[Rfam]
RNA sequence: CUGAGAGCAAUGAUGAAUUACCUGUAAACUCUAUGAAGGGGAUGGGUAUUUCUGAUAACCUGCUCAG
Number, nucleotide and partner (000 for none) at each position: 001c067002u066003g065004a064005g063006a000007g000008c000009a000010a000011u000012g000013a000014u000015g052016a051017a050018u000019u048020a047021c046022c045023u044024g043025u000026a000027a000028a000029c000030u040031c039032u038033a000034u000035g000036a000037a000038g032039g031040g030041g000042a000043u024044g023045g022046g021047u020048a019049u000050u017051u016052c015053u000054g000055a000056u000057a000058a000059c000060c000061u000062g000063c005064u004065c003066a002067g001
Selenocysteine insertion sequence 1: a 67-nucleotide RNA from Cyprinus carpio. From the family's description: The incorporation of selenocysteine into a protein sequence is directed by an in-frame UGA codon (usually a stop codon) within the coding region of the mRNA. Selenoprotein mRNAs contain a conserved secondary structure in the 3' UTR that is required for the distinction of UGA stop from UGA selenocysteine. The selenocysteine insertion sequence (SECIS) is around 60 nt in length and adopts a hairpin structure which is sufficiently well-defined and conserved to act as a computational screen for selenoprotein genes. Rfam classes the family as a cis-regulatory element. The match comes from Rfam's covariance-model search (36 bits).